[Rfam]
RNA sequence: GGGGCUGAUUCUGGAUUCGACGGGAUUUGCGAAACCCAAGGUGCAUGCCGAGGGGCGGUUGGCCUCGUAAAAAGCCGCAAAAAAUAGUCGCAAACGACGAAAACUACGCUUUAGCAGCUUAAUAACCUGCUCUGAGCCCUCUCUCCCUAGCUUCCGCUCUUAAGACGGGGAUCAAAGAGAGGUCAAACCCAAAAGAGAUCGCGUGGAUGCCCUGCCUGGGGUUGAAGCGUUAAAUCUAAUCAGGCUAGUUUGUUAGUGGCGUGUCUGUCCGCAGCUGGCAAGCGAAUGUAAAGACUGACUAAGCAUGUAGUGCCGAGGAUGUAGGAAUUUCGGACGCGGGUUCAACUCCCGCCAGCUCCACCA
Numbered sequence: 001g002g003g004g005c006u007g008a009u010u011c012u013g014g015a016u017u018c019g020a021c022g023g024g025a026u027u028u029g030c031g032a033a034a035c036c037c038a039a040g041g042u043g044c045a046u047g048c049c050g051a052g053g054g055g056c057g058g059u060u061g062g063c064c065u066c067g068u069a070a071a072a073a074g075c076c077g078c079a080a081a082a083a084a085u086a087g088u089c090g091c092a093a094a095c096g097a098c099g100a101a102a103a104c105u106a107c108g109c110u111u112u113a114g115c116a117g118c119u120u121a122a123u124a125a126c127c128u129g130c131u132c133u134g135a136g137c138c139c140u141c142u143c144u145c146c147c148u149a150g151c152u153u154c155c156g157c158u159c160u161u162a163a164g165a166c167g168g169g170g171a172u173c174a175a176a177g178a179g180a181g182g183u184c185a186a187a188c189c190c191a192a193a194a195g196a197g198a199u200c201g202c203g204u205g206g207a208u209g210c211c212c213u214g215c216c217u218g219g220g221g222u223u224g225a226a227g228c229g230u231u232a233a234a235u236c237u238a239a240u241c242a243g244g245c246u247a248g249u250u251u252g253u254u255a256g257u258g259g260c261g262u263g264u265c266u267g268u269c270c271g272c273a274g275c276u277g278g279c280a281a282g283c284g285a286a287u288g289u290a291a292a293g294a295c296u297g298a299c300u301a302a303g304c305a306u307g308u309a310g311u312g313c314c315g316a317g318g319a320u321g322u323a324g325g326a327a328u329u330u331c332g333g334a335c336g337c338g339g340g341u342u343c344a345a346c347u348c349c350c351g352c353c354a355g356c357u358c359c360a361c362c363a
Stems, first nucleotide, its partner, number of pairs: 001359007021332008034320001036318002040314003044307005049067005055078006110135002114130004138182006145170004151164003157197005202229003214245005248283009259272003263299003267295003336352005
Rfam assigns this 363-nucleotide RNA from Klebsiella variicola to the family "transfer-messenger RNA".
Rfam describes the family as follows. Bacterial tmRNA, also known as 10Sa RNA or SsrA, is named for its dual tRNA and mRNA-like properties. Its role is to liberate the mRNA from a stalled ribosome. To accomplish this part of the tmRNA is used as a reading frame that ends in a translation stop signal. The broken mRNA is replaced in the ribosome by the tmRNA and translation of the tmRNA leads to addition of a proteolysis tag to the incomplete protein enabling recognition by a protease.
Clan: tRNA clan.
The base pairs follow the family's consensus structure, which is taken from published work.
Its family is annotated with RNA catabolic process in the Gene Ontology.
On this family, see Williams and Bartel, RNA 1996: "Phylogenetic analysis of tmRNA secondary structure".
The family's RNA type in Rfam is non-coding RNA gene.